The family of this 387-nucleotide RNA from Chelonobacter oris is "Bacterial RNase P class A".
RNA sequence: CGAGUUGGUCAGGCAAUCGCUGGUUUAUUGAAGCUCUCAACCGUUGUAAAACAACCUAGAGGACAAGUAGACGAGAGGAAAGUCCGGGCUACACAGGGCAGAGUGCCGGAUAACGUCCGGGGGGCGCGAGCCUACGACCAGUGCAACAGAGAGCAAACCGCCGAUGGCUCGUAAGAGAUCAGGUAAGGGUGAAAGGGUGCGGUAAGAGCGCACCGCGUGAGUGGCAACAUUUCACGGCACGGUAAACUCCACUCGUAGCAAGACCAAAUAGGAAUCCAACGUGCGGCCCGCAUGGGAUUCGGGUAGGUUGCUUGAGCGUUUGUGCAAAUAAACGCCUAGAGGAAUGAUUGUCCGCGACAGAACCCGGCUUAUCGACCAACUCACUUU
Numbered sequence: 001c002g003a004g005u006u007g008g009u010c011a012g013g014c015a016a017u018c019g020c021u022g023g024u025u026u027a028u029u030g031a032a033g034c035u036c037u038c039a040a041c042c043g044u045u046g047u048a049a050a051a052c053a054a055c056c057u058a059g060a061g062g063a064c065a066a067g068u069a070g071a072c073g074a075g076a077g078g079a080a081a082g083u084c085c086g087g088g089c090u091a092c093a094c095a096g097g098g099c100a101g102a103g104u105g106c107c108g109g110a111u112a113a114c115g116u117c118c119g120g121g122g123g124g125c126g127c128g129a130g131c132c133u134a135c136g137a138c139c140a141g142u143g144c145a146a147c148a149g150a151g152a153g154c155a156a157a158c159c160g161c162c163g164a165u166g167g168c169u170c171g172u173a174a175g176a177g178a179u180c181a182g183g184u185a186a187g188g189g190u191g192a193a194a195g196g197g198u199g200c201g202g203u204a205a206g207a208g209c210g211c212a213c214c215g216c217g218u219g220a221g222u223g224g225c226a227a228c229a230u231u232u233c234a235c236g237g238c239a240c241g242g243u244a245a246a247c248u249c250c251a252c253u254c255g256u257a258g259c260a261a262g263a264c265c266a267a268a269u270a271g272g273a274a275u276c277c278a279a280c281g282u283g284c285g286g287c288c289c290g291c292a293u294g295g296g297a298u299u300c301g302g303g304u305a306g307g308u309u310g311c312u313u314g315a316g317c318g319u320u321u322g323u324g325c326a327a328a329u330a331a332a333c334g335c336c337u338a339g340a341g342g343a344a345u346g347a348u349u350g351u352c353c354g355c356g357a358c359a360g361a362a363c364c365c366g367g368c369u370u371a372u373c374g375a376c377c378a379a380c381u382c383a384c385u386u387u
Stems, first nucleotide, its partner, number of pairs: 002382009011372001012352007020075002023072006080370003084367005089258004096289004101254005106120005121135001122133004136249002141247002143243002158188002160184003165181002168177003196214006215238001216236005221230003262309004272300006280294005316335008
By type it is a ribozyme.
Pairs were carried over by alignment from the consensus structure, which is taken from published work.